[Rfam]
Shown here is a 180-nucleotide sequence from Pullulanibacillus pueri, a member of the family "Lysine riboswitch aptamer". The match comes from Rfam's covariance-model search (117 bits). The organism belongs to Pullulanibacillus, within Bacteria.
RNA sequence: UGUUUUGAUAGAGGCGCGAUUAUCAUCAGUAGUGUUCGGGAAAAGGAUGAGCUUUAAUGAACGAGCACAAAAGGGAUAAUUGCCGAAGUGAAGAGCCGCUCAUUAGAAUCUUCGCUGGAUCCAUGAUUGAAGAAGUCUGGAUUUGUCACACAAAGAAUUGUGUGGAGGACUAUCCAAGCC
Numbered sequence: 001u002g003u004u005u006u007g008a009u010a011g012a013g014g015c016g017c018g019a020u021u022a023u024c025a026u027c028a029g030u031a032g033u034g035u036u037c038g039g040g041a042a043a044a045g046g047a048u049g050a051g052c053u054u055u056a057a058u059g060a061a062c063g064a065g066c067a068c069a070a071a072a073g074g075g076a077u078a079a080u081u082g083c084c085g086a087a088g089u090g091a092a093g094a095g096c097c098g099c100u101c102a103u104u105a106g107a108a109u110c111u112u113c114g115c116u117g118g119a120u121c122c123a124u125g126a127u128u129g130a131a132g133a134a135g136u137c138u139g140g141a142u143u144u145g146u147c148a149c150a151c152a153a154a155g156a157a158u159u160g161u162g163u164g165g166a167g168g169a170c171u172a173u174c175c176a177a178g179c180c
Stems, first nucleotide, its partner, number of pairs: 007174005016083009032068007087116008097106001117144007125137004146165007